[Rfam]
RNA sequence: AGGCACCCCUAUCUCCACCCACGCGGCCGCCACAUGGCAGCCGAGCGAGGGCCUCGGGGUAACUC
Numbered sequence: 001a002g003g004c005a006c007c008c009c010u011a012u013c014u015c016c017a018c019c020c021a022c023g024c025g026g027c028c029g030c031c032a033c034a035u036g037g038c039a040g041c042c043g044a045g046c047g048a049g050g051g052c053c054u055c056g057g058g059g060u061a062a063c064u065c
Base pairs, nucleotide, nucleotide: 002064003063007059008058009057010056018051019050020049022045024043025042026041027040030037031036
MIR2907 microRNA precursor family: a 65-nucleotide RNA from Oryza sativa. For this family Rfam cites "Identification of novel stress-regulated microRNAs from Oryza sativa L" (Jian et al., Genomics, 2010). Pairs were carried over by alignment from the consensus structure, which was predicted with RNAalifold.